[Rfam]
Shown here is a 67-nucleotide RNA from Monodelphis domestica, a member of the family "mir-302 microRNA precursor family".
Pairs were carried over by alignment from the consensus structure, which was predicted with RNAalifold.
The literature on the family includes a 2004 paper in Dev Biol by Suh et al., "Human embryonic stem cells express a unique set of microRNAs".
RNA sequence: UCUCUGCUUUAACAUGGGGGUACCUGCUACGUAAUAAAAAGUAAGUGCUUCCAUGUUUCAGUGGAGA
Numbered sequence: 001u002c003u004c005u006g007c008u009u010u011a012a013c014a015u016g017g018g019g020g021u022a023c024c025u026g027c028u029a030c031g032u033a034a035u036a037a038a039a040a041g042u043a044a045g046u047g048c049u050u051c052c053a054u055g056u057u058u059c060a061g062u063g064g065a066g067a
Stems, first nucleotide, its partner, number of pairs: 001067003005063004011057013025043004